This 95-nucleotide sequence from Periweissella fabalis belongs to the Rfam family "THF (Tetrahydrofolate) riboswitch aptamer".
A search with the family's covariance model found it, with a score of 81 bits.
Rfam describes the family as follows. Tetrahydrofolate (THF) riboswitch was first reported for Ames et al. as an RNA motif in 5' untranslated (5'-UTR)regions of folate transport and biosynthesis genes in Firmicutes genomes.
NCBI's taxonomy places the organism under Bacteria, Bacillota, Lactobacillales, Lactobacillaceae, Periweissella.
Nucleotides: 095
Base pairs, nucleotide, nucleotide: 002094003093004092005091010083011082012081013080014079015078016077017076018075019074020072021071022070026056027055029054030053031052032051033050034049040089041088042087043086044085060069061068062067
Number, partner (000 for none) and nucleotide at each position: 001000a002094a003093c004092a005091g006000g007000g008000u009000a010083g011082a012081a013080u014079a015078u016077u017076g018075c019074g020072c021071g022070u023000u024000a025000a026056g027055u028000g029054u030053u031052g032051u033050g034049g035000a036000a037000a038000c039000g040089g041088a042087a043086u044085g045000u046000g047000a048000g049034c050033c051032a052031c053030a054029a055027a056026c057000g058000a059000a060069g061068g062067a063000u064000u065000u066000u067062u068061c069060c070022g071021c072020g073000g074019u075018g076017c077016a078015a079014u080013a081012u082011u083010c084000g085044c086043a087042u088041u089040c090000a091005c092004u093003g094002u095000a